[Rfam]
RNA sequence: UUCAAAAUGAUGAACGAUAUAUUUGCUACUUCGGACGGGAGCUCUGCUUCCGAAUGAGACUUUCUAAAUAUCACCAAGAUCUCUGAAAUGAA
Numbered sequence: 001u002u003c004a005a006a007a008u009g010a011u012g013a014a015c016g017a018u019a020u021a022u023u024u025g026c027u028a029c030u031u032c033g034g035a036c037g038g039g040a041g042c043u044c045u046g047c048u049u050c051c052g053a054a055u056g057a058g059a060c061u062u063u064c065u066a067a068a069u070a071u072c073a074c075c076a077a078g079a080u081c082u083c084u085g086a087a088a089u090g091a092a
Stems, first nucleotide, its partner, number of pairs: 001092004
The record is a 92-nucleotide sequence from Ambrosiozyma monospora, which matches "Small nucleolar RNA SNORD24" in Rfam.
Its family is annotated with RNA processing and nucleolus in the Gene Ontology.
The family has 14 seed sequences and 2,843 matches in Rfam 15.1.
The base pairs follow the family's consensus structure, which was predicted with PFOLD.
The family's RNA type in Rfam is C/D-box small nucleolar RNA.